[Rfam]
RNA: Group I catalytic intron
RNA sequence: AAGCUUGUGUCAAUGAGGGCACACUUCAGUGGUGACACUGUCGAUUAAACCUUGUGAAUUCAGGGGAAGAGAAUAGGGGAAAACGAUUUUGCAGGCAAUAUCAUCAGCCGAUAAAAGACUUUUAUAGUUGAUGAAAAAACGUCACUUGUAUGUGAAGUUUCUCCCUGUUUCUCCAAUCCUGAGCCAAGCCCUAAAAAGCAAACCAUGCUUACUCGUGGGGUCAGAUCCCAUCGGUUGAUUGGUUGUCCCUGUGCUGUAUCCAUGAUAAGCAAACGGACAUGCAGGAAAGCAAGCUAGUGACUUGCCCCAGUCACGCCAAAGCGUGACCGACGCACCAUCUAUCCACAACGGGGACAAUGCUGAAGCAGCCAGAUAGUUAGUUGUGCGCUAUGCUCAACAAGCACCACGGGUUAAACCAUAUUCUUUUUAGGGAAGGUGCAGAGACUAUCGAAAUCACUUCAUCAUGAAGCGACUGAAGAGUAGUGAUGAAGGAAGAGAGUAGAGUACAUCGUGAGUUUGACGAUCACGGUGGAAGCGCAAGGGUUCUUAUCGGAUAUCGCAGUCGGAUAAGAAUAAGAUAUAGUCCACCUACUUUUUUAAGUAGC
Numbered sequence: 001a002a003g004c005u006u007g008u009g010u011c012a013a014u015g016a017g018g019g020c021a022c023a024c025u026u027c028a029g030u031g032g033u034g035a036c037a038c039u040g041u042c043g044a045u046u047a048a049a050c051c052u053u054g055u056g057a058a059u060u061c062a063g064g065g066g067a068a069g070a071g072a073a074u075a076g077g078g079g080a081a082a083a084c085g086a087u088u089u090u091g092c093a094g095g096c097a098a099u100a101u102c103a104u105c106a107g108c109c110g111a112u113a114a115a116a117g118a119c120u121u122u123u124a125u126a127g128u129u130g131a132u133g134a135a136a137a138a139a140c141g142u143c144a145c146u147u148g149u150a151u152g153u154g155a156a157g158u159u160u161c162u163c164c165c166u167g168u169u170u171c172u173c174c175a176a177u178c179c180u181g182a183g184c185c186a187a188g189c190c191c192u193a194a195a196a197a198g199c200a201a202a203c204c205a206u207g208c209u210u211a212c213u214c215g216u217g218g219g220g221u222c223a224g225a226u227c228c229c230a231u232c233g234g235u236u237g238a239u240u241g242g243u244u245g246u247c248c249c250u251g252u253g254c255u256g257u258a259u260c261c262a263u264g265a266u267a268a269g270c271a272a273a274c275g276g277a278c279a280u281g282c283a284g285g286a287a288a289g290c291a292a293g294c295u296a297g298u299g300a301c302u303u304g305c306c307c308c309a310g311u312c313a314c315g316c317c318a319a320a321g322c323g324u325g326a327c328c329g330a331c332g333c334a335c336c337a338u339c340u341a342u343c344c345a346c347a348a349c350g351g352g353g354a355c356a357a358u359g360c361u362g363a364a365g366c367a368g369c370c371a372g373a374u375a376g377u378u379a380g381u382u383g384u385g386c387g388c389u390a391u392g393c394u395c396a397a398c399a400a401g402c403a404c405c406a407c408g409g410g411u412u413a414a415a416c417c418a419u420a421u422u423c424u425u426u427u428u429a430g431g432g433a434a435g436g437u438g439c440a441g442a443g444a445c446u447a448u449c450g451a452a453a454u455c456a457c458u459u460c461a462u463c464a465u466g467a468a469g470c471g472a473c474u475g476a477a478g479a480g481u482a483g484u485g486a487u488g489a490a491g492g493a494a495g496a497g498a499g500u501a502g503a504g505u506a507c508a509u510c511g512u513g514a515g516u517u518u519g520a521c522g523a524u525c526a527c528g529g530u531g532g533a534a535g536c537g538c539a540a541g542g543g544u545u546c547u548u549a550u551c552g553g554a555u556a557u558c559g560c561a562g563u564c565g566g567a568u569a570a571g572a573a574u575a576a577g578a579u580a581u582a583g584u585c586c587a588c589c590u591a592c593u594u595u596u597u598u599a600a601g602u603a604g605c
Stems, first nucleotide, its partner, number of pairs: 006023006028039003050542004055537002060182006069173005183437002189431002441586001443585005545572007553564003590603005